[Rfam]
RNA sequence: AAGGAGUAUGCCGAAAAUCCUGGAAAGAGUAGGCG
Numbered sequence: 001a002a003g004g005a006g007u008a009u010g011c012c013g014a015a016a017a018u019c020c021u022g023g024a025a026a027g028a029g030u031a032g033g034c035g
Base pairs, nucleotide, nucleotide: 002021003020004019005018010034011033012032
Dot-bracket structure: .((((....[[[.....))))..........]]].
Shown here is a 35-nucleotide RNA, a member of the family "DUF805b RNA". It is one of the family's seed sequences. The base pairs follow the family's consensus structure, which is taken from published work.